Annotation
Rfam assigns this 91-nucleotide RNA from Flavonifractor sp. An100 to the family "ZMP/ZTP riboswitch aptamer (pfl RNA motif)". The source organism's lineage runs through Bacteria, Bacillati, Bacillota, Eubacteriales and Flavonifractor. A search with the family's covariance model found it, with a score of 57 bits.
RNA sequence: AUUCAGCCAUACAACUGACGGAAGUGGAGCGACCACAUGGAGUAUGGCGGGACGUUAUGCGUCCUUUUUGCCGACCGUCUGGGCGCACUAA
Numbered sequence: 001a002u003u004c005a006g007c008c009a010u011a012c013a014a015c016u017g018a019c020g021g022a023a024g025u026g027g028a029g030c031g032a033c034c035a036c037a038u039g040g041a042g043u044a045u046g047g048c049g050g051g052a053c054g055u056u057a058u059g060c061g062u063c064c065u066u067u068u069u070g071c072c073g074a075c076c077g078u079c080u081g082g083g084c085g086c087a088c089u090a091a
Base pairs, nucleotide, nucleotide: 003051004050006048007047008046009045010044011043012042015039017079018078019077020076021075024036025035026034027033069085070084071083072082
Dot-bracket structure: ..((.(((((((..(.[[[[[..((((.....))))..)..))))))).)).................((((..]]]]]..))))......